[Rfam]
RNA: Plastid-ccsA-ndhD-1 3UTR RNA
RNA sequence: AAGAUAUCGAGAACCCUUUAAAUCACUACAUUACUUGAUUCAAAUGAUUCUCACGAA
Numbered sequence: 001a002a003g004a005u006a007u008c009g010a011g012a013a014c015c016c017u018u019u020a021a022a023u024c025a026c027u028a029c030a031u032u033a034c035u036u037g038a039u040u041c042a043a044a045u046g047a048u049u050c051u052c053a054c055g056a057a
Base pairs, nucleotide, nucleotide: 009052010051011050012049013048015046017044018043019042021040022039023038024037025036